[Rfam]
RNA sequence: GAGAAAUGAUGAUUAACCAAUUGGUCCGUGUUUCUGAAUUUACCGUGACCGACAACUUUUUAACCAAAUUCUGAUCUU
Numbered sequence: 001g002a003g004a005a006a007u008g009a010u011g012a013u014u015a016a017c018c019a020a021u022u023g024g025u026c027c028g029u030g031u032u033u034c035u036g037a038a039u040u041u042a043c044c045g046u047g048a049c050c051g052a053c054a055a056c057u058u059u060u061u062a063a064c065c066a067a068a069u070u071c072u073g074a075u076c077u078u
Stems, first nucleotide, its partner, number of pairs: 001078004
This 78-nucleotide sequence from Cynara cardunculus belongs to the Rfam family "Small nucleolar RNA SNORD18". On this family, see Prislei et al., Nucleic Acids Res 1993: "Two different snoRNAs are encoded in introns of amphibian and human L1 ribosomal protein genes". Gene Ontology terms of the family: RNA processing and nucleolus. By type it is a C/D-box small nucleolar RNA. The family has 16 seed sequences and 2,622 matches in Rfam 15.1. Taxonomically the source falls in Cynara cardunculus subsp. cardunculus (Eukaryota, eudicotyledons, asterids, Cardueae). It scores 46 bits against the family's covariance model.